[Rfam]
RNA sequence: GCGAGACAGGGGGACCCGUGACCAGGCGCGACCGAUAAACUGUUCCACGGACGGUGUGCGGUGCAGCCCCUGCCGUCCGCCAAUGAUCAGCCAGCAGCCGCUGCAACCACAGGGAG
Numbered sequence: 001g002c003g004a005g006a007c008a009g010g011g012g013g014a015c016c017c018g019u020g021a022c023c024a025g026g027c028g029c030g031a032c033c034g035a036u037a038a039a040c041u042g043u044u045c046c047a048c049g050g051a052c053g054g055u056g057u058g059c060g061g062u063g064c065a066g067c068c069c070c071u072g073c074c075g076u077c078c079g080c081c082a083a084u085g086a087u088c089a090g091c092c093a094g095c096a097g098c099c100g101c102u103g104c105a106a107c108c109a110c111a112g113g114g115a116g
Stems, first nucleotide, its partner, number of pairs: 049078006057072002060070002092103004